[Rfam]
RNA sequence: GGUGAUAAACGGUAGAUGGAAUAGGUGUAGUGGACCCGGGGGCAGUACCCGGCGUCUCCACCAGAUGCUGCCUUGCUAGAGGUGGUUUUUAUGGGGACGAAACAGGCUCGACACGCAUAGUAAAGAUCUACUUUUUGCUCGGCAUGGUACCACCGUUAUCGGACUAAAACACUAUAAGUGCCAAUGAUAACUCUGAGGUGCUCGCUGUUGCUGCGUAA
Numbered sequence: 001g002g003u004g005a006u007a008a009a010c011g012g013u014a015g016a017u018g019g020a021a022u023a024g025g026u027g028u029a030g031u032g033g034a035c036c037c038g039g040g041g042g043c044a045g046u047a048c049c050c051g052g053c054g055u056c057u058c059c060a061c062c063a064g065a066u067g068c069u070g071c072c073u074u075g076c077u078a079g080a081g082g083u084g085g086u087u088u089u090u091a092u093g094g095g096g097a098c099g100a101a102a103c104a105g106g107c108u109c110g111a112c113a114c115g116c117a118u119a120g121u122a123a124a125g126a127u128c129u130a131c132u133u134u135u136u137g138c139u140c141g142g143c144a145u146g147g148u149a150c151c152a153c154c155g156u157u158a159u160c161g162g163a164c165u166a167a168a169a170c171a172c173u174a175u176a177a178g179u180g181c182c183a184a185u186g187a188u189a190a191c192u193c194u195g196a197g198g199u200g201c202u203c204g205c206u207g208u209u210g211c212u213g214c215g216u217a218a
Base pairs, nucleotide, nucleotide: 001139002138003137004136005135014129015128016127017126026117027116028115030114031113032112036052037051038050039049040048053099054098055097056096057095058094059093140155141154142153
Record summary:
Rfam assigns this 218-nucleotide RNA from Saccharibacter sp. 17.LH.SD to the family "permuted transfer-messenger RNA". Its family is annotated with RNA catabolic process in the Gene Ontology. A search with the family's covariance model found it, with a score of 150 bits. The organism belongs to Saccharibacter, within Bacteria.